Description
A member of the RNA family "ZMP/ZTP riboswitch aptamer (pfl RNA motif)" from Firmicutes bacterium CAG:94, 87 nucleotides long. Gene Ontology terms of the family: regulation of purine nucleotide biosynthetic process and one-carbon metabolic process. The organism belongs to Bacillota, within Bacteria.
RNA sequence: CAAGGCCCCCGCAACUGACGGGCUAAUGUGGAACUCACCACAGGGGAGCGGGGAGCAGCCUUUUUGCCGACCGUCUGGGCAGUGUCG
Numbered sequence: 001c002a003a004g005g006c007c008c009c010c011g012c013a014a015c016u017g018a019c020g021g022g023c024u025a026a027u028g029u030g031g032a033a034c035u036c037a038c039c040a041c042a043g044g045g046g047a048g049c050g051g052g053g054a055g056c057a058g059c060c061u062u063u064u065u066g067c068c069g070a071c072c073g074u075c076u077g078g079g080c081a082g083u084g085u086c087g
Stems, first nucleotide, its partner, number of pairs: 004056001007053006015045002017075005028041004064082005